[Rfam]
RNA sequence: CAACAACUGAAAGGAGGUGAUCCAGUGUCUCAUUGUCAUCAACCGCUGGUGCAAGGCGGGUGGACCUGGACCUCUUCUUGCUGGGGUUCCUGUUCCGCGUGAGUUUUCGCACCUUUGAUCCGGCUCGCUGGAUCGCGGUUCGACAAUGGAAGGGCUGUCCGAAAGGGCGGCCCU
Numbered sequence: 001c002a003a004c005a006a007c008u009g010a011a012a013g014g015a016g017g018u019g020a021u022c023c024a025g026u027g028u029c030u031c032a033u034u035g036u037c038a039u040c041a042a043c044c045g046c047u048g049g050u051g052c053a054a055g056g057c058g059g060g061u062g063g064a065c066c067u068g069g070a071c072c073u074c075u076u077c078u079u080g081c082u083g084g085g086g087u088u089c090c091u092g093u094u095c096c097g098c099g100u101g102a103g104u105u106u107u108c109g110c111a112c113c114u115u116u117g118a119u120c121c122g123g124c125u126c127g128c129u130g131g132a133u134c135g136c137g138g139u140u141c142g143a144c145a146a147u148g149g150a151a152g153g154g155c156u157g158u159c160c161g162a163a164a165g166g167g168c169g170g171c172c173c174u
Stems, first nucleotide, its partner, number of pairs: 016023002031148007044058004059065001068090001069087001071086003077083001095138005151174010
RNA: caulobacter sRNA CC2171